[Rfam]
Source information: Group II catalytic intron D1-D4-3: a 157-nucleotide sequence from Alicyclobacillus acidocaldarius.
RNA sequence: UCCAUCGCGAGGUGGAAUCUGAAGGAAGCCGGAGGCAAAGCCCCGACCUGAGGACCACGAACCCAAGGUGAGGCCGCUGCAUUCGGGCGACAAAACCCCAUACAGCCAAGGGAUGCAGGAGUAAAUUGGGCAGGUACAUGGGGCGAAAGCGACCGUU
Numbered sequence: 001u002c003c004a005u006c007g008c009g010a011g012g013u014g015g016a017a018u019c020u021g022a023a024g025g026a027a028g029c030c031g032g033a034g035g036c037a038a039a040g041c042c043c044c045g046a047c048c049u050g051a052g053g054a055c056c057a058c059g060a061a062c063c064c065a066a067g068g069u070g071a072g073g074c075c076g077c078u079g080c081a082u083u084c085g086g087g088c089g090a091c092a093a094a095a096c097c098c099c100a101u102a103c104a105g106c107c108a109a110g111g112g113a114u115g116c117a118g119g120a121g122u123a124a125a126u127u128g129g130g131c132a133g134g135u136a137c138a139u140g141g142g143g144c145g146a147a148a149g150c151g152a153c154c155g156u157u
Base pairs, nucleotide, nucleotide: 001016002015003014004013005012006011028157030155031154032153035150036149040144041143042142043141044140045139046135047134048133049132050131062130063129064128065127066126073122074121077118078117079116080115081114082113083112085098086097087096
From the family's description: Group II introns are found in rRNA, tRNA and mRNA of organelles in fungi, plants and protists, and also in mRNA in bacteria. The pairing is the family consensus, mapped onto this sequence.